Overview: Shown here is a 59-nucleotide RNA sequence from Thermoproteus tenax, a member of the family "Pyrobaculum sRNA 210". From the family's description: Non canonical pseudouridylation guide sRNA features. Predicted to target tRNALys U54 in Pyrobaculum. The match comes from Rfam's covariance-model search (60 bits). For this family Rfam cites "Discovery of Pyrobaculum small RNA families with atypical pseudouridine guide RNA features" (Bernick et al., RNA, 2012).
RNA sequence: UGGGCCGGACCGCCGCGCCGGCGGCAGAAUGAGCGGCCCGCCCGCGGCCGAGCCAAACA
Numbered sequence: 001u002g003g004g005c006c007g008g009a010c011c012g013c014c015g016c017g018c019c020g021g022c023g024g025c026a027g028a029a030u031g032a033g034c035g036g037c038c039c040g041c042c043c044g045c046g047g048c049c050g051a052g053c054c055a056a057a058c059a
Stems, first nucleotide, its partner, number of pairs: 001040006012025005